Shown here is a 131-nucleotide sequence from Hibiscus trionum, a member of the family "mir-393 microRNA precursor family". The source organism's lineage runs through Eukaryota, Viridiplantae, Spermatophyta, Mesangiospermae and Hibiscus. Pairs were carried over by alignment from the consensus structure. It scores 100 bits against the family's covariance model.

[Rfam]
RNA sequence: AGAGGAAGCAUCCAAAGGGAUCGCAUUGAUCCUUUAUUUUUCAAAUUAACCCUUCUUGUUUUCCUUCUCACCUCAUAAUAAUAAUAAAAAAACACAAUUUUGGAUCAUGCUAUCCCUUUGGAUUUCUCCUC
Numbered sequence: 001a002g003a004g005g006a007a008g009c010a011u012c013c014a015a016a017g018g019g020a021u022c023g024c025a026u027u028g029a030u031c032c033u034u035u036a037u038u039u040u041u042c043a044a045a046u047u048a049a050c051c052c053u054u055c056u057u058g059u060u061u062u063c064c065u066u067c068u069c070a071c072c073u074c075a076u077a078a079u080a081a082u083a084a085u086a087a088a089a090a091a092a093c094a095c096a097a098u099u100u101u102g103g104a105u106c107a108u109g110c111u112a113u114c115c116c117u118u119u120g121g122a123u124u125u126c127u128c129c130u131c
Stems, first nucleotide, its partner, number of pairs: 002131005008125001010123012023110004028106005036099001